[Rfam]
RNA sequence: AGCGCUCUCUUAGGGGAGUAAUCUGCCGUCACGGCCAUUCUGGCUGCUGAUUCUGGUGUCUGUAUCAACAUAAUUGAGCCUCAAGCUCAUGGUGCAGACGUCCCGUCAUCGGGAUU
Number, nucleotide and partner (000 for none) at each position: 001a000002g000003c000004g000005c000006u000007c000008u000009c000010u000011u000012a000013g000014g000015g000016g000017a000018g000019u000020a000021a000022u000023c000024u000025g000026c056027c055028g054029u000030c000031a000032c000033g000034g000035c000036c000037a000038u000039u000040c000041u000042g000043g000044c000045u000046g000047c000048u000049g000050a000051u000052u000053c000054u028055g027056g026057u000058g099059u098060c097061u096062g095063u094064a093065u092066c091067a090068a000069c000070a000071u000072a000073a000074u000075u089076g088077a087078g086079c085080c000081u000082c000083a000084a000085g079086c078087u077088c076089a075090u067091g066092g065093u064094g063095c062096a061097g060098a059099c058100g115101u114102c113103c112104c111105g110106u000107c000108a000109u000110c105111g104112g103113g102114a101115u100116u000